Rfam assigns this 353-nucleotide part of an RNA from Cohnella herbarum to the family "Bacterial small subunit ribosomal RNA". NCBI's taxonomy places the organism under Bacteria, Bacillota, Bacilli, Caryophanales, Cohnella. It scores 1611 bits against the family's covariance model.

RNA sequence: GGCGUAAAGCGCGCGCAGGCGGCUCUUUAAGUCUGGUGUCUAAGUGCGGGGCUCAACCCCGUGAUGCACUGGAAACUGGGGAGCUUGAGUGCAGAAGAGGAGAGCGGAAUUCCACGUGUAGCGGUGAAAUGCGUAGAGAUGUGGAGGAACACCAGUGGCGAAGGCGGCUCUCUGGACUGUAACUGACGCUGAGGCGCGAAAGCGUGGGGAGCAAACAGGAUUAGAUACCCUGGUAGUCCACGCUGUAAACGAUGAGUGCUAGGUGUUGGGGGUAUCAUGCCCUCGGUGCCGAAGUUAACACAUUAAGCACUCCGCCUGGGGAGUACGGUCGCAAGACUGAAACUCAAAGGAAU
Numbered sequence: 001g002g003c004g005u006a007a008a009g010c011g012c013g014c015g016c017a018g019g020c021g022g023c024u025c026u027u028u029a030a031g032u033c034u035g036g037u038g039u040c041u042a043a044g045u046g047c048g049g050g051g052c053u054c055a056a057c058c059c060c061g062u063g064a065u066g067c068a069c070u071g072g073a074a075a076c077u078g079g080g081g082a083g084c085u086u087g088a089g090u091g092c093a094g095a096a097g098a099g100g101a102g103a104g105c106g107g108a109a110u111u112c113c114a115c116g117u118g119u120a121g122c123g124g125u126g127a128a129a130u131g132c133g134u135a136g137a138g139a140u141g142u143g144g145a146g147g148a149a150c151a152c153c154a155g156u157g158g159c160g161a162a163g164g165c166g167g168c169u170c171u172c173u174g175g176a177c178u179g180u181a182a183c184u185g186a187c188g189c190u191g192a193g194g195c196g197c198g199a200a201a202g203c204g205u206g207g208g209g210a211g212c213a214a215a216c217a218g219g220a221u222u223a224g225a226u227a228c229c230c231u232g233g234u235a236g237u238c239c240a241c242g243c244u245g246u247a248a249a250c251g252a253u254g255a256g257u258g259c260u261a262g263g264u265g266u267u268g269g270g271g272g273u274a275u276c277a278u279g280c281c282c283u284c285g286g287u288g289c290c291g292a293a294g295u296u297a298a299c300a301c302a303u304u305a306a307g308c309a310c311u312c313c314g315c316c317u318g319g320g321g322a323g324u325a326c327g328g329u330c331g332c333a334a335g336a337c338u339g340a341a342a343c344u345c346a347a348a349g350g351a352a353u
Stems, first nucleotide, its partner, number of pairs: 001316003009313001011197004016191001018190003022084007030077002032073008045063007088184003091180004099173007106150001110146008121132003158165002202243006211237002216232004254312006262290012294301002318345003327338004